The record is a 100-nucleotide RNA sequence from Paenibacillus zeisoli, which matches "Purine riboswitch aptamer" in Rfam.
The family has 133 seed sequences and 4,097 matches in Rfam 15.1.
Lineage of the source: Bacteria > Bacillota > Bacilli > Paenibacillaceae > Paenibacillus.
RNA sequence: UACAACUUCAAAUUGACCAUUCGUAUAUCCUCGAUAAUAUGGAUUGAGGGUUUCUACAAGGGACCAUAAAUUCCUGGCUACGAAUAGGGUGCCUCAGCAU
Numbered sequence: 001u002a003c004a005a006c007u008u009c010a011a012a013u014u015g016a017c018c019a020u021u022c023g024u025a026u027a028u029c030c031u032c033g034a035u036a037a038u039a040u041g042g043a044u045u046g047a048g049g050g051u052u053u054c055u056a057c058a059a060g061g062g063a064c065c066a067u068a069a070a071u072u073c074c075u076g077g078c079u080a081c082g083a084a085u086a087g088g089g090u091g092c093c094u095c096a097g098c099a100u
Stems, first nucleotide, its partner, number of pairs: 019085007029049007059075005